The record is a 107-nucleotide sequence from Vulpes vulpes, which matches "mir-8834 microRNA precursor family" in Rfam. The match comes from Rfam's covariance-model search (57 bits).

RNA sequence: AGGAGGAACAGCCACAGUGGCAGCGGCCAGCUCUGGAGCCCUGGAGUCAGCUCCCACAGUAACUACGGAGCUCUCUGUCUCCAGGGGCCUAGAUGCCCCGGGGGGUG
Numbered sequence: 001a002g003g004a005g006g007a008a009c010a011g012c013c014a015c016a017g018u019g020g021c022a023g024c025g026g027c028c029a030g031c032u033c034u035g036g037a038g039c040c041c042u043g044g045a046g047u048c049a050g051c052u053c054c055c056a057c058a059g060u061a062a063c064u065a066c067g068g069a070g071c072u073c074u075c076u077g078u079c080u081c082c083a084g085g086g087g088c089c090u091a092g093a094u095g096c097c098c099c100g101g102g103g104g105g106u107g
Stems, first nucleotide, its partner, number of pairs: 002099002005096001007094001010090002012087002019079005025074002029072007037064001041059003
Dot-bracket structure: .((.(.(..((((.....(((((.((..(((((((.(...(((.............)))....).))))))))))))))......)).))...).).))........